[Rfam]
Rfam assigns this 90-nucleotide RNA sequence to the family "Group II catalytic intron D1-D4-1". Rfam links the family to the GO term Group II intron splicing. Rfam's curators write: Group II introns are found in rRNA, tRNA and mRNA of organelles in fungi, plants and protists, and also in mRNA in bacteria.
RNA sequence: CUAAGUUAUCAGUAAUGAUAACUGAUAGAGCAUAAGUAGUCAGCAGAGGGCAUAGUACUUAUAUUUUCGAUAUCAAAUAUAAGAAAGGCC
Numbered sequence: 001c002u003a004a005g006u007u008a009u010c011a012g013u014a015a016u017g018a019u020a021a022c023u024g025a026u027a028g029a030g031c032a033u034a035a036g037u038a039g040u041c042a043g044c045a046g047a048g049g050g051c052a053u054a055g056u057a058c059u060u061a062u063a064u065u066u067u068c069g070a071u072a073u074c075a076a077a078u079a080u081a082a083g084a085a086a087g088g089c090c
Base pairs, nucleotide, nucleotide: 004023005022006021007020008019009018010017011016040047041046049090050089051088058083059082060081061080062079063078064077065076066075

The family has 237 seed sequences and 2,508 matches in Rfam 15.1.